[Rfam]
RNA: Streptomyces-metK RNA
Organism: Streptomyces actinomycinicus
RNA sequence: GCGAGACGGUGGCCCGUCGGCGGAGUGCGACCGAUAAACUGUUUCACGGACGACGCCAGGCGCAGCCCAGCGUCGUCCGCAAAUGAUCAGCCAGCAGCCGCUGCAACCACAGGGAG
Numbered sequence: 001g002c003g004a005g006a007c008g009g010u011g012g013c014c015c016g017u018c019g020g021c022g023g024a025g026u027g028c029g030a031c032c033g034a035u036a037a038a039c040u041g042u043u044u045c046a047c048g049g050a051c052g053a054c055g056c057c058a059g060g061c062g063c064a065g066c067c068c069a070g071c072g073u074c075g076u077c078c079g080c081a082a083a084u085g086a087u088c089a090g091c092c093a094g095c096a097g098c099c100g101c102u103g104c105a106a107c108c109a110c111a112g113g114g115a116g
Stems, first nucleotide, its partner, number of pairs: 048078006056072001057070001059068002092103004